[Rfam]
RNA sequence: UGAAAUUGAAUAAAAUUUCCGUAGACAGUAGGUGCUGUAGCGUAACGUAAAUCAACCUACCGAGGUUCCAAUACAUUAGCUUGUAAUGGGUCUUCCUGUGUCUGCGGGAAGACCUUUCUUAAUAUAAUA
Numbered sequence: 001u002g003a004a005a006u007u008g009a010a011u012a013a014a015a016u017u018u019c020c021g022u023a024g025a026c027a028g029u030a031g032g033u034g035c036u037g038u039a040g041c042g043u044a045a046c047g048u049a050a051a052u053c054a055a056c057c058u059a060c061c062g063a064g065g066u067u068c069c070a071a072u073a074c075a076u077u078a079g080c081u082u083g084u085a086a087u088g089g090g091u092c093u094u095c096c097u098g099u100g101u102c103u104g105c106g107g108g109a110a111g112a113c114c115u116u117u118c119u120u121a122a123u124a125u126a127a128u129a
Base pairs, nucleotide, nucleotide: 028060029059030058031057032056033055034041035040089114090113091112092111093110094109095108096107097106098105

This 129-nucleotide RNA from Clostridium amylolyticum belongs to the Rfam family "Ribosomal protein L10 leader". NCBI's taxonomy places the organism under Bacteria, Bacillota, Eubacteriales, Clostridiaceae, Clostridium. The match comes from Rfam's covariance-model search (74 bits). It is annotated as a cis-regulatory leader. This family is a putative r-protein leader autoregulatory structure found in B. subtilis and other low-GC Gram-positive bacteria. It is located in the 5' untranslated regions of mRNAs encoding ribosomal proteins L10 and L12 (rplJ-rplL). A Rho-independent transcription terminator structure that is probably involved in regulation is included at the 3' end.